[Rfam]
RNA sequence: AUAUGCCUGGCUCCCUGUAUGCCAUACACUAAGUUCAUCGAUCCUCGGCGACCUCCGUGGAUGGCGUAUGAGGAGCCAAGCAUAA
Numbered sequence: 001a002u003a004u005g006c007c008u009g010g011c012u013c014c015c016u017g018u019a020u021g022c023c024a025u026a027c028a029c030u031a032a033g034u035u036c037a038u039c040g041a042u043c044c045u046c047g048g049c050g051a052c053c054u055c056c057g058u059g060g061a062u063g064g065c066g067u068a069u070g071a072g073g074a075g076c077c078a079a080g081c082a083u084a085a
Base pairs, nucleotide, nucleotide: 002084003083004082005081006080008078009077010076011075012074013073014072016070017069018068019067020066021065022064023063024062027059028058029057
RNA: mir-160 microRNA precursor family
Organism: Brassica rapa